[Rfam]
RNA sequence: UGAAAUUUUCAUUUUUUACAUGCCAGAUCAUGAAUUAGUGUAUACUGAGUUAUUGAACAGAAAGGAGCAAUAAUUAAUUUCUUGUUCUAGAAAGAAGUUUGGUAUUGCUCCUUU
Numbered sequence: 001u002g003a004a005a006u007u008u009u010c011a012u013u014u015u016u017u018a019c020a021u022g023c024c025a026g027a028u029c030a031u032g033a034a035u036u037a038g039u040g041u042a043u044a045c046u047g048a049g050u051u052a053u054u055g056a057a058c059a060g061a062a063a064g065g066a067g068c069a070a071u072a073a074u075u076a077a078u079u080u081c082u083u084g085u086u087c088u089a090g091a092a093a094g095a096a097g098u099u100u101g102g103u104a105u106u107g108c109u110c111c112u113u114u
Stems, first nucleotide, its partner, number of pairs: 061114012076099002079096005

A member of the RNA family "Plastid-psbA-1 3UTR RNA" from Ziziphus jujuba, 114 nucleotides long. NCBI's taxonomy places the organism under Eukaryota, Mesangiospermae, rosids, Rosales, Ziziphus. For this family Rfam cites "Retrograde signaling in plants: A critical review focusing on the GUN pathway and beyond" (Richter et al., Plant Commun, 2023).